The record is a 158-nucleotide RNA sequence from a Lysobacteraceae bacterium, which matches "FMN riboswitch aptamer (RFN element)" in Rfam. The source organism's lineage runs through Bacteria, Pseudomonadati, Pseudomonadota, Lysobacterales and Lysobacteraceae. The literature on the family includes a 2002 paper in Nucleic Acids Res by Vitreschak et al., "Regulation of riboflavin biosynthesis and transport genes in bacteria by transcriptional and translational attenuation". The family's consensus secondary structure is taken from published work.
RNA sequence: UAACGUCUUCAGGGCGGGGUGCGAUUCCCCACCGGCGGUAGGUCCAGGCGCCAGCGGCGCCUGCGACGAGCCCGCGAGCGCUUCCCACAGCGGGAAGGUCAGCAGAUCCGGUCCGAUGCCGGAGCCGACGGUCAUAGUCCGGAUGAAAGAAGACGAGC
Numbered sequence: 001u002a003a004c005g006u007c008u009u010c011a012g013g014g015c016g017g018g019g020u021g022c023g024a025u026u027c028c029c030c031a032c033c034g035g036c037g038g039u040a041g042g043u044c045c046a047g048g049c050g051c052c053a054g055c056g057g058c059g060c061c062u063g064c065g066a067c068g069a070g071c072c073c074g075c076g077a078g079c080g081c082u083u084c085c086c087a088c089a090g091c092g093g094g095a096a097g098g099u100c101a102g103c104a105g106a107u108c109c110g111g112u113c114c115g116a117u118g119c120c121g122g123a124g125c126c127g128a129c130g131g132u133c134a135u136a137g138u139c140c141g142g143a144u145g146a147a148a149g150a151a152g153a154c155g156a157g158c
Stems, first nucleotide, its partner, number of pairs: 004155007017029003031138002033127002035075004070125002078103002107123005129141003